[Rfam]
The family of this 65-nucleotide RNA sequence from Erinaceus europaeus is "mir-338 microRNA precursor family". A reference for the family is Chen et al. (2005), "The developmental miRNA profiles of zebrafish as determined by small RNA cloning", Genes Dev. The family has 36 seed sequences and 1,231 matches in Rfam 15.1. It scores 78 bits against the family's covariance model.
RNA sequence: UCCCCAACAACAUCCUGGUGCUGAGUGAUGAUCAACAACUCCAGCAUCAGUGAUUUUGUUGCAGA
Numbered sequence: 001u002c003c004c005c006a007a008c009a010a011c012a013u014c015c016u017g018g019u020g021c022u023g024a025g026u027g028a029u030g031a032u033c034a035a036c037a038a039c040u041c042c043a044g045c046a047u048c049a050g051u052g053a054u055u056u057u058g059u060u061g062c063a064g065a
Stems, first nucleotide, its partner, number of pairs: 006060005012054003015050009